A member of the RNA family "DUF2800 RNA", 161 nucleotides long. It is annotated as a cis-regulatory element. The sequence is in the family's curated seed alignment. The base pairs follow the family's consensus structure, which is taken from published work.

[Rfam]
RNA sequence: CCCACAAGCGGUACGUCUGUUGGCCACGGACGAUCCAGUGCCACCUGAUGGGACAAGUUAAUACAAACAGCUGCCUACUGGAUAAGGAAGCUGCAGACUGGGACGGAGAAAUCUCCGUCGGGACUGUGGUUGGAUUUCUAUACCCAUUUUGCAGCUGACCA
Numbered sequence: 001c002c003c004a005c006a007a008g009c010g011g012u013a014c015g016u017c018u019g020u021u022g023g024c025c026a027c028g029g030a031c032g033a034u035c036c037a038g039u040g041c042c043a044c045c046u047g048a049u050g051g052g053a054c055a056a057g058u059u060a061a062u063a064c065a066a067a068c069a070g071c072u073g074c075c076u077a078c079u080g081g082a083u084a085a086g087g088a089a090g091c092u093g094c095a096g097a098c099u100g101g102g103a104c105g106g107a108g109a110a111a112u113c114u115c116c117g118u119c120g121g122g123a124c125u126g127u128g129g130u131u132g133g134a135u136u137u138c139u140a141u142a143c144c145c146a147u148u149u150u151g152c153a154g155c156u157g158a159c160c161a
Stems, first nucleotide, its partner, number of pairs: 001052004007046002010042004014032005033083006068157007090130005103118005